Short Intergenic Abundant RNA: a 146-nucleotide sequence from Citrobacter rodentium.
[Rfam]
RNA sequence: UUGACAUUAGCGUUGGUGUGGCUUAGUUUCAGGAGUGAGGGUAAGGGAGGGUCGCCCCUCCCCCUGGUGUCUUAGUAAGCCGGGAAGCUAAUGACUAAGAAUAUCACCAGUAUGAUGACCAACUUCAUCAUAACCCUUUCCUUAUU
Numbered sequence: 001u002u003g004a005c006a007u008u009a010g011c012g013u014u015g016g017u018g019u020g021g022c023u024u025a026g027u028u029u030c031a032g033g034a035g036u037g038a039g040g041g042u043a044a045g046g047g048a049g050g051g052u053c054g055c056c057c058c059u060c061c062c063c064c065u066g067g068u069g070u071c072u073u074a075g076u077a078a079g080c081c082g083g084g085a086a087g088c089u090a091a092u093g094a095c096u097a098a099g100a101a102u103a104u105c106a107c108c109a110g111u112a113u114g115a116u117g118a119c120c121a122a123c124u125u126c127a128u129c130a131u132a133a134c135c136c137u138u139u140c141c142u143u144a145u146u
Base pairs, nucleotide, nucleotide: 031142032141033140034139037138038137039136040135041134042133045062046061047060064110065109066108067107111132112131113130114129115128116127117126
The base pairs follow the family's consensus structure, which was predicted with PFOLD. NCBI's taxonomy places the organism under Bacteria, Pseudomonadota, Gammaproteobacteria, Citrobacter, Citrobacter rodentium. This family contains multiple ncRNA from E. coli that were identified in a large scale screen of E. coli, were they were called candidates 43,55 and 61. These RNAs have also been identified by other groups and called QUAD RNAs. By type it is an antitoxin RNA.